Group II catalytic intron D1-D4-1: an 85-nucleotide RNA sequence from Clostridium vincentii. It scores 72 bits against the family's covariance model. The source organism's lineage runs through Bacteria, Bacillati, Clostridia, Clostridiaceae and Clostridium.
[Rfam]
RNA sequence: UAACCUAUGUAGUGAUAUAUAGCUGAACUAUCAGAAGUCAGCAGACGCCAUAGUACUUCGCUAACCGCGUUAGCGGAGAAAGGGC
Numbered sequence: 001u002a003a004c005c006u007a008u009g010u011a012g013u014g015a016u017a018u019a020u021a022g023c024u025g026a027a028c029u030a031u032c033a034g035a036a037g038u039c040a041g042c043a044g045a046c047g048c049c050a051u052a053g054u055a056c057u058u059c060g061c062u063a064a065c066c067g068c069g070u071u072a073g074c075g076g077a078g079a080a081a082g083g084g085c
Stems, first nucleotide, its partner, number of pairs: 001025002005022007037046003047085003056078008